The record is a 78-nucleotide RNA sequence from Mesocricetus auratus, which matches "Small nucleolar RNA SNORD109A" in Rfam. The match comes from Rfam's covariance-model search (38 bits). From the family's description: Humans have two copies of the SNORD109 gene, SNORD109A and SNORD109B. A reference for the family is Runte et al. (2001), "The IC-SNURF-SNRPN transcript serves as a host for multiple small nucleolar RNA species and as an antisense RNA for UBE3A", Hum Mol Genet. The family's consensus secondary structure was predicted with WAR. Rfam classes the family as a C/D-box small nucleolar RNA.
RNA sequence: GGAUCAAUGAUGAAAACAACUCUCUGAAGAUGGUGAAUAACUCAUAUAAACGAAAAUCAGAAGUUGAGAGAUAAGUCC
Numbered sequence: 001g002g003a004u005c006a007a008u009g010a011u012g013a014a015a016a017c018a019a020c021u022c023u024c025u026g027a028a029g030a031u032g033g034u035g036a037a038u039a040a041c042u043c044a045u046a047u048a049a050a051c052g053a054a055a056a057u058c059a060g061a062a063g064u065u066g067a068g069a070g071a072u073a074a075g076u077c078c
Base pairs, nucleotide, nucleotide: 001078002077003076004075